RNA sequence: UCUUCAGUAUGGGUCAAUCUCUGAUCUGCAACUGAAUAUGAUGAGUUCGGGCGAUGAUCUUCUGUGAUUACAUCGCACGGCGAGGUGGGAACGCAAUACCCGCCUGCCAGCCCGAUUCUGAA
Numbered sequence: 001u002c003u004u005c006a007g008u009a010u011g012g013g014u015c016a017a018u019c020u021c022u023g024a025u026c027u028g029c030a031a032c033u034g035a036a037u038a039u040g041a042u043g044a045g046u047u048c049g050g051g052c053g054a055u056g057a058u059c060u061u062c063u064g065u066g067a068u069u070a071c072a073u074c075g076c077a078c079g080g081c082g083a084g085g086u087g088g089g090a091a092c093g094c095a096a097u098a099c100c101c102g103c104c105u106g107c108c109a110g111c112c113c114g115a116u117u118c119u120g121a122a
Stems, first nucleotide, its partner, number of pairs: 018035002020031001022030002060075001063072003080111002083105006

U8 small nucleolar RNA: a 122-nucleotide RNA from Caenorhabditis elegans. The family's RNA type in Rfam is C/D-box small nucleolar RNA. Its family is annotated with RNA processing and nucleolus in the Gene Ontology. A reference for the family is Peculis et al. (2001), "The U8 snoRNA gene family: identification and characterization of distinct, functional U8 genes in Xenopus", Gene. Rfam 15.1 lists 1,597 matches to the family in 457 species.